The record is a 58-nucleotide sequence from Pyrus ussuriensis x Pyrus communis, which matches "Plastid-ndhJ 3UTR RNA" in Rfam. The family has 50 seed sequences and 869 matches in Rfam 15.1. The family's consensus secondary structure was predicted with LocARNA. It is annotated as a cis-regulatory element. On this family, see Richter et al., Plant Commun 2023: "Retrograde signaling in plants: A critical review focusing on the GUN pathway and beyond". The organism belongs to Pyrus, within Eukaryota.
RNA sequence: UGAUAAGCCUUUGUACCGAGCACAUCAUUUAGAUGGGCCCCAAAAAGCAACGUAGGAA
Numbered sequence: 001u002g003a004u005a006a007g008c009c010u011u012u013g014u015a016c017c018g019a020g021c022a023c024a025u026c027a028u029u030u031a032g033a034u035g036g037g038c039c040c041c042a043a044a045a046a047g048c049a050a051c052g053u054a055g056g057a058a
Base pairs, nucleotide, nucleotide: 020038021037023035024034025033026032
Dot-bracket structure: ...................((.((((.....)))).))....................
Rfam describes the family as follows. Plastid ndhJ is a non-coding RNA (ncRNA) present in plastids. It was identified as a short stem-loop motif in the 3 prime untranslate region (3UTR) of ndhJ gene.